[Rfam]
RNA sequence: GGGCGAUUAGCUCAGUUGGUUAGAGCACCUGCCUUACAAGCAGGGGGCAUAGGGUCGGGGCCUUUUUUCCCCA
Numbered sequence: 001g002g003g004c005g006a007u008u009a010g011c012u013c014a015g016u017u018g019g020u021u022a023g024a025g026c027a028c029c030u031g032c033c034u035u036a037c038a039a040g041c042a043g044g045g046g047g048c049a050u051a052g053g054g055u056c057g058g059g060g061c062c063u064u065u066u067u068u069c070c071c072c073a
Stems, first nucleotide, its partner, number of pairs: 001072003005068002010026004028044005049065001051063003
tRNA: a 73-nucleotide RNA from Firmicutes bacterium CAG:582. Lineage of the source: Bacteria > Bacillati > Bacillota. Rfam classes the family as a transfer RNA. Gene Ontology term of the family: triplet codon-amino acid adaptor activity. A search with the family's covariance model found it, with a score of 46 bits. Transfer RNA (tRNA) molecules are approximately 80 nucleotides in length.